[Rfam]
RNA sequence: GUUGCUUCUGUAAUUUAAUGUUGAGUAACCUGUGUUCUGAUUGGUUAUUCAUUAUGUAUAGAAGCAUACAACUGUGUUAUUGCCAGUUUUAAACAGCAUGAUGUGUUUUUAUUUUGCAUUGUGUUACCUGUCUGCUGGUAAAUUU
Numbered sequence: 001g002u003u004g005c006u007u008c009u010g011u012a013a014u015u016u017a018a019u020g021u022u023g024a025g026u027a028a029c030c031u032g033u034g035u036u037c038u039g040a041u042u043g044g045u046u047a048u049u050c051a052u053u054a055u056g057u058a059u060a061g062a063a064g065c066a067u068a069c070a071a072c073u074g075u076g077u078u079a080u081u082g083c084c085a086g087u088u089u090u091a092a093a094c095a096g097c098a099u100g101a102u103g104u105g106u107u108u109u110u111a112u113u114u115u116g117c118a119u120u121g122u123g124u125u126a127c128c129u130g131u132c133u134g135c136u137g138g139u140a141a142a143u144u145u
Stems, first nucleotide, its partner, number of pairs: 003066006016054005022047003082139006095125003099121005
Dot-bracket structure: ..((((((.......(((((.(((....................)))..)))))......))))))...............((((((.......(((.(((((.............))))).)))........))))))......
The record is a 145-nucleotide RNA from Lathyrus oleraceus, which matches "small nucleolar RNA snoR137" in Rfam. The match comes from Rfam's covariance-model search (51 bits). Pairs were carried over by alignment from the consensus structure, which was predicted with RNAalifold. The family's RNA type in Rfam is H/ACA-box small nucleolar RNA.